[Rfam]
RNA sequence: ACCAUCUCUGUCUUGGGGUGCAGCGGGAUGUUCAAUGGACGUAUAGUGAGAGCAUCCCUGCUAACACUUAACCAACACAUUCAGCAUCACCUGGACGCCUAGUCCAGGCUACGGUGCAAUUUCUUGUGGG
Numbered sequence: 001a002c003c004a005u006c007u008c009u010g011u012c013u014u015g016g017g018g019u020g021c022a023g024c025g026g027g028a029u030g031u032u033c034a035a036u037g038g039a040c041g042u043a044u045a046g047u048g049a050g051a052g053c054a055u056c057c058c059u060g061c062u063a064a065c066a067c068u069u070a071a072c073c074a075a076c077a078c079a080u081u082c083a084g085c086a087u088c089a090c091c092u093g094g095a096c097g098c099c100u101a102g103u104c105c106a107g108g109c110u111a112c113g114g115u116g117c118a119a120u121u122u123c124u125u126g127u128g129g130g
Stems, first nucleotide, its partner, number of pairs: 006018004020061004027056007039047002084117005090108006
RNA: U4atac minor spliceosomal RNA
Organism: Denticeps clupeoides